RNA sequence: GCACUGGUUUAGCUCAGUGGUUACUUCGAACACAUUUUCUCCUGUAGAAAAACUGCUCUCCAUCCCUCCUUGGGAUCAAACCAUGGGCGCUGUCCAGUGUUUUU
Numbered sequence: 001g002c003a004c005u006g007g008u009u010u011a012g013c014u015c016a017g018u019g020g021u022u023a024c025u026u027c028g029a030a031c032a033c034a035u036u037u038u039c040u041c042c043u044g045u046a047g048a049a050a051a052a053c054u055g056c057u058c059u060c061c062a063u064c065c066c067u068c069c070u071u072g073g074g075a076u077c078a079a080a081c082c083a084u085g086g087g088c089g090c091u092g093u094c095c096a097g098u099g100u101u102u103u104u
Base pairs, nucleotide, nucleotide: 002099003098004097005096006095007094012088013087014086015085017084018083019082020081025080026079028077029076

Overview:
Shown here is a 104-nucleotide RNA sequence from Labrus bergylta, a member of the family "Vault RNA". Lineage of the source: Eukaryota > Bilateria > Gnathostomata > Euteleosteomorpha > Labrus. It is annotated as a non-coding RNA gene.